[Rfam]
RNA sequence: AUAGUGUGCCUUUCAGGCAUCCUCUCCUAGACUUCCGAGCUGGCUUUCGAGCUGGCUCUUUUUUUUGGCCCGC
Number, nucleotide and partner (000 for none) at each position: 001a000002u000003a000004g000005u000006g000007u000008g018009c017010c016011u015012u000013u000014c000015a011016g010017g009018c008019a000020u000021c000022c000023u000024c000025u000026c000027c000028u000029a000030g000031a000032c000033u000034u000035c000036c000037g058038a057039g056040c055041u054042g053043g052044c051045u050046u000047u000048c000049g000050a045051g044052c043053u042054g041055g040056c039057u038058c037059u000060u000061u000062u000063u000064u000065u000066u000067g000068g000069c000070c000071c000072g000073c000